[Rfam]
RNA sequence: UUGCGUCUUCAGGGCGGGGUGAAAUUCCCCACCGGCGGUAAAUUAACCCUAGUGAGUUGAUGAGCCCGCGAGCGCCCAAUAUUUUUUUGGGGUCAGCAGAUCAGGUGAAACGCCUGAGCCGACGGUAUAGUCCGGAUGAAAGAAGACAUAC
Numbered sequence: 001u002u003g004c005g006u007c008u009u010c011a012g013g014g015c016g017g018g019g020u021g022a023a024a025u026u027c028c029c030c031a032c033c034g035g036c037g038g039u040a041a042a043u044u045a046a047c048c049c050u051a052g053u054g055a056g057u058u059g060a061u062g063a064g065c066c067c068g069c070g071a072g073c074g075c076c077c078a079a080u081a082u083u084u085u086u087u088u089g090g091g092g093u094c095a096g097c098a099g100a101u102c103a104g105g106u107g108a109a110a111c112g113c114c115u116g117a118g119c120c121g122a123c124g125g126u127a128u129a130g131u132c133c134g135g136a137u138g139a140a141a142g143a144a145g146a147c148a149u150a151c
Base pairs, nucleotide, nucleotide: 003149005147006146007145008144009143010142017029018028019027031131032130033121034120035069036068037067038066064119065118072097073096101117102116103115104114105113123134124133125132